[Rfam]
RNA sequence: CGCUAUACUAGCUUCUGAAUUUACCGGCUCACUUCCACGAGCCGGUCUUUAGUUUGA
Numbered sequence: 001c002g003c004u005a006u007a008c009u010a011g012c013u014u015c016u017g018a019a020u021u022u023a024c025c026g027g028c029u030c031a032c033u034u035c036c037a038c039g040a041g042c043c044g045g046u047c048u049u050u051a052g053u054u055u056g057a
Stems, first nucleotide, its partner, number of pairs: 002012004016051004023046008